[Rfam]
RNA: Purine riboswitch aptamer
Organism: Paenibacillus lycopersici
RNA sequence: AAACAAAAUUGCAUGUCUUUUCGUAUAAUCUCAAGAAUCGGCUUGAGAGUCUCUACGAGGUCACCGUAAAUGGCCUGUCUACGAAAAGCAAGUUGCACGCG
Numbered sequence: 001a002a003a004c005a006a007a008a009u010u011g012c013a014u015g016u017c018u019u020u021u022c023g024u025a026u027a028a029u030c031u032c033a034a035g036a037a038u039c040g041g042c043u044u045g046a047g048a049g050u051c052u053c054u055a056c057g058a059g060g061u062c063a064c065c066g067u068a069a070a071u072g073g074c075c076u077g078u079c080u081a082c083g084a085a086a087a088g089c090a091a092g093u094u095g096c097a098c099g100c101g
Stems, first nucleotide, its partner, number of pairs: 018087008029048007058076006